RNA sequence: AUACUUACCUGAUGGGAGAGAUACCGUGAUCAUUAAGGCGGUUCUCUCAGGGCGAGGCCUACCCAUUGCACUUCGGGAAGGUUGACCCCUGCGAUUUCCCCAAAUGUGGGAAAGUCGACCGUGCAAUUUGUGGUAGUGGGGGACUGCGUUCGCGCUAUCCCCUG
Numbered sequence: 001a002u003a004c005u006u007a008c009c010u011g012a013u014g015g016g017a018g019a020g021a022u023a024c025c026g027u028g029a030u031c032a033u034u035a036a037g038g039c040g041g042u043u044c045u046c047u048c049a050g051g052g053c054g055a056g057g058c059c060u061a062c063c064c065a066u067u068g069c070a071c072u073u074c075g076g077g078a079a080g081g082u083u084g085a086c087c088c089c090u091g092c093g094a095u096u097u098c099c100c101c102a103a104a105u106g107u108g109g110g111a112a113a114g115u116c117g118a119c120c121g122u123g124c125a126a127u128u129u130g131u132g133g134u135a136g137u138g139g140g141g142g143a144c145u146g147c148g149u150u151c152g153c154g155c156u157a158u159c160c161c162c163u164g
Base pairs, nucleotide, nucleotide: 012122013121014120015119016048017047018046019045020044021043023042024041025040026039027038049090050089051088052087054086056083057082058081060079062077063076064075092117093116094115095113096112097111099109100108138163139162140161141160142159143158146155147154148153
Annotation: This 164-nucleotide RNA sequence from Eptatretus burgeri belongs to the Rfam family "U1 spliceosomal RNA". Pairs were carried over by alignment from the consensus structure, which is taken from published work. Lineage of the source: Eukaryota > Eumetazoa > Bilateria > Cyclostomata > Eptatretus. The family is grouped with related families in Rfam's "U1 clan". The literature on the family includes a 1990 paper in Proc Natl Acad Sci U S A by Kretzner et al., "Saccharomyces cerevisiae U1 small nuclear RNA secondary structure contains both universal and yeast-specific domains". Rfam's curators write: U1 is a small nuclear RNA (snRNA) component of the spliceosome (involved in pre-mRNA splicing). Its 5' end forms complementary base pairs with the 5' splice junction, thus defining the 5' donor site of an intron. The match comes from Rfam's covariance-model search (159 bits).